[Rfam]
RNA sequence: AUUAUCCUUAUCAGGUCAUUUAAAAUUUGUUCUGCCGCGUCACCUUUGUGUCAUUAGGUGGCAGAGAGAAGAGAGACUUGUCUACGCUCGGCGUUCUGGCCUGUGGACGUCUGGAUGAUUGAUAGUCUGACACU
Dot-bracket structure: .((.((((((...(((....(.((...((..(......).))...))).)))..)))).)).))......(..((((((.....((.(((((((((........))))).)))).))....).)))))..)...
A member of the RNA family "Small nucleolar RNA SNORA17" from Tursiops truncatus, 134 nucleotides long. On this family, see Ofengand and Bakin, J Mol Biol 1997: "Mapping to nucleotide resolution of pseudouridine residues in large subunit ribosomal RNAs from representative eukaryotes, prokaryotes, archaebacteria, mitochondria and chloroplasts". Lineage of the source: Eukaryota > Metazoa > Gnathostomata > Theria > Tursiops. From the family's description: snoRNA ACA 17 belongs to the H/ACA family of snoRNAs and is predicted to guide pseudouridylation of the 28S rRNA at positions U4659 and U4598. It shares the same host gene together with ACA43. NB This family has a high threshold value to exclude a large number of closely related sequences that do not appear to have conserved H and ACA boxes, and may be pseudogenes. Its family is annotated with RNA processing and nucleolus in the Gene Ontology. The family has 53 seed sequences and 5,784 matches in Rfam 15.1. Rfam classes the family as an H/ACA-box small nucleolar RNA. Clan: SNORA17 clan.